[Rfam]
RNA sequence: CAUUGCGAAGCUUAGAGCGUUAACCUUUUAAGUUAAAGUUAGAGAUCACAAAUCUCCACAAUGA
Dot-bracket structure: (((((.(..(((...))).(((((.......))))).....((((.......))))).))))).
RNA: tRNA